[Rfam]
RNA sequence: AGGUGCCGUCGUUAGCUGAGGCUCCUCCGCGGAUACAGGCCGGCGACCCCGAACGUCGAGAGACGCCCCGGGUCAGGACAGGUCUCCCCGAGAUAAGGGGUGAUCCCGACCGGCUCCCACUCAUGGUGGGUUACGCCGUGGAGUGCUGAAGGUCUUACGAGGGGUGGCUACC
Numbered sequence: 001a002g003g004u005g006c007c008g009u010c011g012u013u014a015g016c017u018g019a020g021g022c023u024c025c026u027c028c029g030c031g032g033a034u035a036c037a038g039g040c041c042g043g044c045g046a047c048c049c050c051g052a053a054c055g056u057c058g059a060g061a062g063a064c065g066c067c068c069c070g071g072g073u074c075a076g077g078a079c080a081g082g083u084c085u086c087c088c089c090g091a092g093a094u095a096a097g098g099g100g101u102g103a104u105c106c107c108g109a110c111c112g113g114c115u116c117c118c119a120c121u122c123a124u125g126g127u128g129g130g131u132u133a134c135g136c137c138g139u140g141g142a143g144u145g146c147u148g149a150a151g152g153u154c155u156u157a158c159g160a161g162g163g164g165u166g167g168c169u170a171c172c
Stems, first nucleotide, its partner, number of pairs: 005168006011158002013096001015153003020147003025143008039114005045074005054065004081105004087099003116130003
RNA: M-box riboswitch aptamer (ykoK leader)